Pseudomonas sRNA P9: an 84-nucleotide RNA sequence from Trinickia fusca.
NCBI's taxonomy places the organism under Bacteria, Pseudomonadati, Pseudomonadota, Burkholderiaceae, Trinickia.
Rfam's curators write: This small RNA (sRNA) was computationally identified in the genome of the opportunistic pathogen Pseudomonas aeruginosa and its expression verified by northern blot analysis. P9 appears to be conserved in several Pseudomonas species in addition to Bordetella spp. In both Pseudomonas and Bordetella spp P9 appears to be located upstream of a predicted threonine dehydratase gene.

RNA sequence: CAGAUUAUUCGCAUCAUUCGACAACGAAUGGUGGGUUAGCGCGCGCUCAAGCAAUCAGCCAAACCCGCCCUCCAGGCGGGUUUU
Number, nucleotide and partner (000 for none) at each position: 001c000002a000003g000004a000005u000006u000007a000008u000009u000010c000011g000012c033013a032014u031015c030016a029017u028018u027019c026020g025021a000022c000023a000024a000025c020026g019027a018028a017029u016030g015031g014032u013033g012034g000035g000036u000037u000038a000039g000040c000041g000042c000043g000044c000045g000046c000047u000048c000049a000050a000051g000052c000053a000054a000055u000056c000057a000058g000059c000060c000061a083062a082063a081064c080065c079066c078067g077068c076069c075070c000071u000072c000073c000074a000075g069076g068077c067078g066079g065080g064081u063082u062083u061084u000